This 185-nucleotide RNA sequence from Paraburkholderia ultramafica belongs to the Rfam family "Manganese Mn2+ riboswitch aptamer (yybP-ykoY)". The base pairs follow the family's consensus structure. A reference for the family is Barrick et al. (2004), "New RNA motifs suggest an expanded scope for riboswitches in bacterial genetic control", Proc Natl Acad Sci U S A. About the family: This RNA was originally discovered in E. coli during a large scale screen and was named SraF. The family was later found to exist upstream of related families of protein genes in many bacteria, including the the yybP and ykoK genes in B. subtilis. Gene Ontology term of the family: manganese ion binding.

[Rfam]
RNA sequence: CGCCAACUCUUCGGGGAGUAGCCGCCUUGGACGUACUGUUCAGGGGCUCAUGUCAACAUACUUGGACCGGUCGCCAGACUGGCCAUGGCGUGAGCAGCGAUAGCCUGGCAAGACCGAUGACAACAUUCCCACCUAGCCGGGUCGCGGGGAUGCGUGUCAUCGCGUGUUGACCGUGCGGCCCGGUU
Numbered sequence: 001c002g003c004c005a006a007c008u009c010u011u012c013g014g015g016g017a018g019u020a021g022c023c024g025c026c027u028u029g030g031a032c033g034u035a036c037u038g039u040u041c042a043g044g045g046g047c048u049c050a051u052g053u054c055a056a057c058a059u060a061c062u063u064g065g066a067c068c069g070g071u072c073g074c075c076a077g078a079c080u081g082g083c084c085a086u087g088g089c090g091u092g093a094g095c096a097g098c099g100a101u102a103g104c105c106u107g108g109c110a111a112g113a114c115c116g117a118u119g120a121c122a123a124c125a126u127u128c129c130c131a132c133c134u135a136g137c138c139g140g141g142u143c144g145c146g147g148g149g150a151u152g153c154g155u156g157u158c159a160u161c162g163c164g165u166g167u168u169g170a171c172c173g174u175g176c177g178g179c180c181c182g183g184u185u
Base pairs, nucleotide, nucleotide: 025044026043027042046095047094048093049092050091051090052089053088054087055086063085064084065083067081099185100184101183